[Rfam]
RNA sequence: AGAAAGUGUACCUAGGGUUCCACGCCCGCGCGGCGGGCGGUUCGGUCCGAGCGGUACAGGCGGCCGGGGAUGUCCGUCCGCUACACCGGCAGGGAGAAAAGCCCAGGCGGC
Numbered sequence: 001a002g003a004a005a006g007u008g009u010a011c012c013u014a015g016g017g018u019u020c021c022a023c024g025c026c027c028g029c030g031c032g033g034c035g036g037g038c039g040g041u042u043c044g045g046u047c048c049g050a051g052c053g054g055u056a057c058a059g060g061c062g063g064c065c066g067g068g069g070a071u072g073u074c075c076g077u078c079c080g081c082u083a084c085a086c087c088g089g090c091a092g093g094g095a096g097a098a099a100a101g102c103c104c105a106g107g108c109g110g111c
Base pairs, nucleotide, nucleotide: 007058008057009056010055011054012053015048016047020045021044022042023039024038025037026036027035028034059082060081061080062079063078065076066075084106086109092104093103094102
Shown here is a 111-nucleotide sequence from Desulfotomaculum copahuensis, a member of the family "Guanidine-I riboswitch aptamer". The source organism's lineage runs through Bacteria, Bacillati, Clostridia, Desulfotomaculaceae and Desulfotomaculum. Rfam 15.1 lists 1,509 matches to the family in 1,281 species. The pairing is the family consensus, mapped onto this sequence. About the family: This family represents a conserved RNA structure found upstream of the ykkC and yxkD genes in Bacillus subtilis and related genes in other bacteria. The function of this family is unclear although it has been suggested that it may function to switch on efflux pumps and detoxification systems in response to harmful environmental molecules.